[Rfam]
RNA sequence: GAUUUAUAAAGAAGUGGGGAGAGAUCAGGCUCUGUGAACCACUGGCAACCUACCACAUGGCAAGGUGCUAACUCCUGCCUAAAGUUAUUUAGGGACUAUAAAUC
Dot-bracket structure: ((((((((....(((((...(((..[[[[)))......)))))((((.(((.((....)).).))))))....]]]]((((((....))))))...))))))))
Numbered sequence: 001g002a003u004u005u006a007u008a009a010a011g012a013a014g015u016g017g018g019g020a021g022a023g024a025u026c027a028g029g030c031u032c033u034g035u036g037a038a039c040c041a042c043u044g045g046c047a048a049c050c051u052a053c054c055a056c057a058u059g060g061c062a063a064g065g066u067g068c069u070a071a072c073u074c075c076u077g078c079c080u081a082a083a084g085u086u087a088u089u090u091a092g093g094g095a096c097u098a099u100a101a102a103u104c
Stems, first nucleotide, its partner, number of pairs: 001104008013043005021032003026077004044069004049065002051062001053060002078093006